This 104-nucleotide RNA from Rattus norvegicus belongs to the Rfam family "mir-3102 microRNA precursor family". Taxonomically the source falls in Rattus (Eukaryota, Opisthokonta, Muroidea, Murinae). Pairs were carried over by alignment from the consensus structure, which was predicted with RNAalifold. Gene Ontology terms of the family: RISC complex and miRNA-mediated post-transcriptional gene silencing.
[Rfam]
RNA sequence: GUGAGUGGCCAGGGUGGGGCUGGGUGGUGCAGGCAGGAGAGCCAUUGAUCUAUUGCGGGCUCUACUCCCUGCCCCAGCCAGAGCACCCCAUUGGCUACCCACAG
Number, nucleotide and partner (000 for none) at each position: 001g102002u101003g100004a000005g098006u097007g096008g095009c094010c093011a092012g000013g000014g091015u090016g089017g088018g087019g086020c081021u080022g079023g078024g000025u076026g075027g074028u000029g072030c071031a070032g069033g068034c000035a066036g065037g000038a063039g062040a061041g060042c059043c058044a000045u000046u000047g000048a000049u000050c000051u000052a000053u000054u000055g000056c000057g000058g043059g042060c041061u040062c039063u038064a000065c036066u035067c000068c033069c032070u031071g030072c029073c000074c027075c026076a025077g000078c023079c022080a021081g020082a000083g000084c000085a000086c019087c018088c017089c016090a015091u014092u011093g010094g009095c008096u007097a006098c005099c000100c003101a002102c001103a000104g000